[Rfam]
RNA sequence: UUCUUAUCCAGAGUGGCGAAGGGACUGGCCCUAUGAUGCCCAGCAACCUGAAUGAUUUUUCAUCAUUCAACGGUGCUAAUUCCAGCAGGUAUAAAACCUGAAAGAUGAGAA
Numbered sequence: 001u002u003c004u005u006a007u008c009c010a011g012a013g014u015g016g017c018g019a020a021g022g023g024a025c026u027g028g029c030c031c032u033a034u035g036a037u038g039c040c041c042a043g044c045a046a047c048c049u050g051a052a053u054g055a056u057u058u059u060u061c062a063u064c065a066u067u068c069a070a071c072g073g074u075g076c077u078a079a080u081u082c083c084a085g086c087a088g089g090u091a092u093a094a095a096a097c098c099u100g101a102a103a104g105a106u107g108a109g110a111a
Stems, first nucleotide, its partner, number of pairs: 001111008013041001015040003021031003025085004042077004047073002049069007081103001086100005

A member of the RNA family "SAM riboswitch aptamer (S box leader)" from Clostridium kluyveri, 111 nucleotides long. Rfam links the family to the GO term regulation of gene expression. From the family's description: The SAM riboswitch is found upstream of a number of genes which code for proteins involved in methionine or cysteine biosynthesis in Gram-positive bacteria. Lineage of the source: Bacteria > Bacillati > Clostridiaceae > Clostridium > Clostridium kluyveri.